[Rfam]
RNA sequence: GCCGAUGAGGAAAUCCAAUUUUGCGAGGUGCAGUGGAGCUGAGACCCUGUUUUCAGGGAGAACCCCUUAGCAGAAACUGCAAUUUCUAUGAAGCUUGUGGAUUAACUGAGGC
Numbered sequence: 001g002c003c004g005a006u007g008a009g010g011a012a013a014u015c016c017a018a019u020u021u022u023g024c025g026a027g028g029u030g031c032a033g034u035g036g037a038g039c040u041g042a043g044a045c046c047c048u049g050u051u052u053u054c055a056g057g058g059a060g061a062a063c064c065c066c067u068u069a070g071c072a073g074a075a076a077c078u079g080c081a082a083u084u085u086c087u088a089u090g091a092a093g094c095u096u097g098u099g100g101a102u103u104a105a106c107u108g109a110g111g112c
Stems, first nucleotide, its partner, number of pairs: 001112003045058005
Small nucleolar RNA Z278: a 112-nucleotide RNA sequence from Brassica rapa.
The family's RNA type in Rfam is C/D-box small nucleolar RNA.
Lineage of the source: Eukaryota > Viridiplantae > Euphyllophyta > Gunneridae > Brassica.
A reference for the family is Chen et al. (2003), "The high diversity of snoRNAs in plants: identification and comparative study of 120 snoRNA genes from Oryza sativa", Nucleic Acids Res.
Rfam's curators write: snoZ278 is a C/D box small nucleolar RNA. Its methylation guide targets have not been reported.
Pairs were carried over by alignment from the consensus structure, which was predicted with PFOLD.
Gene Ontology terms of the family: RNA processing and nucleolus.